[Rfam]
RNA: mir-8364 microRNA precursor family
Organism: Pristionchus pacificus
RNA sequence: UUUUCAUUUCACGCACUCUCUCUCCUCUCAGACCGGUGAGAUAGCGCGUGAAAUGAAGAGA
Number, nucleotide and partner (000 for none) at each position: 001u059002u058003u057004u056005c055006a054007u053008u000009u000010c050011a000012c048013g047014c046015a000016c044017u043018c000019u041020c040021u039022c038023u000024c000025c000026u000027c000028u000029c000030a000031g000032a000033c000034c000035g000036g000037u000038g022039a021040g020041a019042u000043a017044g016045c000046g014047c013048g012049u000050g010051a000052a000053a007054u006055g005056a004057a003058g002059a001060g000061a000